[Rfam]
RNA sequence: AAGCAGGUUAAGUUACAAUGUAGCUGUGAAGUGCUGUAUUGUCGUUCCCCCUGCUCAAAGCAAAUGUUUCAUACUAUCCCUGCCUGCCUUGAUCCCAUAGCAGAUGGGGACGCUUGGUCUCAUACAC
Numbered sequence: 001a002a003g004c005a006g007g008u009u010a011a012g013u014u015a016c017a018a019u020g021u022a023g024c025u026g027u028g029a030a031g032u033g034c035u036g037u038a039u040u041g042u043c044g045u046u047c048c049c050c051c052u053g054c055u056c057a058a059a060g061c062a063a064a065u066g067u068u069u070c071a072u073a074c075u076a077u078c079c080c081u082g083c084c085u086g087c088c089u090u091g092a093u094c095c096c097a098u099a100g101c102a103g104a105u106g107g108g109g110a111c112g113c114u115u116g117g118u119c120u121c122a123u124a125c126a127c
Stems, first nucleotide, its partner, number of pairs: 003054005015042010079108004084103004